Rfam assigns this 71-nucleotide RNA from Carlito syrichta to the family "Small nucleolar RNA SNORD56". It scores 55 bits against the family's covariance model. The family's RNA type in Rfam is C/D-box small nucleolar RNA.

RNA sequence: CUACAGUGUUGGUGACAUUUUUUUGUCAACAGAAGUUCACCUAAUGAGUGUGAUACUUUGGAUCCAAGUGA
Number, nucleotide and partner (000 for none) at each position: 001c000002u070003a069004c068005a000006g000007u000008g027009u000010u025011g024012g000013u000014g000015a000016c000017a000018u000019u000020u000021u000022u000023u000024u011025g010026u000027c008028a000029a000030c000031a000032g000033a000034a000035g000036u000037u000038c000039a000040c000041c000042u000043a000044a000045u000046g000047a000048g000049u000050g000051u000052g000053a000054u000055a000056c000057u000058u000059u000060g000061g000062a000063u000064c000065c000066a000067a000068g004069u003070g002071a000
Taxonomically the source falls in Carlito (Eukaryota, Metazoa, Craniata, Sarcopterygii).